[Rfam]
RNA sequence: GGCUAAUGAUGAUAAGAUAAAGGCUUGUUUCUCAAAACAUUCGCAGUGGCCGACCAAGAGCUUUCGCCUUCGCCAGGCUUGAGAGCUAAUGCUGCUAUUAUCCUUCCUUGGAUGUCUGAGGCC
Numbered sequence: 001g002g003c004u005a006a007u008g009a010u011g012a013u014a015a016g017a018u019a020a021a022g023g024c025u026u027g028u029u030u031c032u033c034a035a036a037a038c039a040u041u042c043g044c045a046g047u048g049g050c051c052g053a054c055c056a057a058g059a060g061c062u063u064u065c066g067c068c069u070u071c072g073c074c075a076g077g078c079u080u081g082a083g084a085g086c087u088a089a090u091g092c093u094g095c096u097a098u099u100a101u102c103c104u105u106c107c108u109u110g111g112a113u114g115u116c117u118g119a120g121g122c123c
Base pairs, nucleotide, nucleotide: 001123002122003121004120060086061085062084063083064082065081
Small nucleolar RNA SNORD14: a 123-nucleotide sequence from Lupinus albus. A search with the family's covariance model found it, with a score of 80 bits. The family has 18 seed sequences and 4,559 matches in Rfam 15.1. About the family: U14 small nucleolar RNA (U14 snoRNA) is required for early cleavages of eukaryotic precursor rRNAs. By type it is a C/D-box small nucleolar RNA.